[Rfam]
RNA: Small nucleolar RNA SNORA74
Organism: Tinamus guttatus
RNA sequence: CCCAGUGGUAGUCAGCUGUCCAGGGCAGUACCAUGCCUGUGAUAGUGUUACACUGCUGGGAGAUAAACGUCAGUCAUUUCUUCUGGCUGUUGUUGUCACCGUUCUGGAGACGGCUGAUGCCAGAAGGAAGUACUAUUAUGCUUCUGUGAGAGCGUACUAAGGAUAUGCUACACCUCUUUAGUGCUAGUCCGGAAGCAUACAUG
Numbered sequence: 001c002c003c004a005g006u007g008g009u010a011g012u013c014a015g016c017u018g019u020c021c022a023g024g025g026c027a028g029u030a031c032c033a034u035g036c037c038u039g040u041g042a043u044a045g046u047g048u049u050a051c052a053c054u055g056c057u058g059g060g061a062g063a064u065a066a067a068c069g070u071c072a073g074u075c076a077u078u079u080c081u082u083c084u085g086g087c088u089g090u091u092g093u094u095g096u097c098a099c100c101g102u103u104c105u106g107g108a109g110a111c112g113g114c115u116g117a118u119g120c121c122a123g124a125a126g127g128a129a130g131u132a133c134u135a136u137u138a139u140g141c142u143u144c145u146g147u148g149a150g151a152g153c154g155u156a157c158u159a160a161g162g163a164u165a166u167g168c169u170a171c172a173c174c175u176c177u178u179u180a181g182u183g184c185u186a187g188u189c190c191g192g193a194a195g196c197a198u199a200c201a202u203g
Base pairs, nucleotide, nucleotide: 001060002059003058004057005056006055007054008053009052011051012050015046016045017044018043019042020041021039022038023037024036069136070135072134073133074132075127082124083123084122085121086120087119090116092114094112095111096110097109099107100106138198139197140196141195142194143193144192145191154184155183156182158180159179160178161177162176163175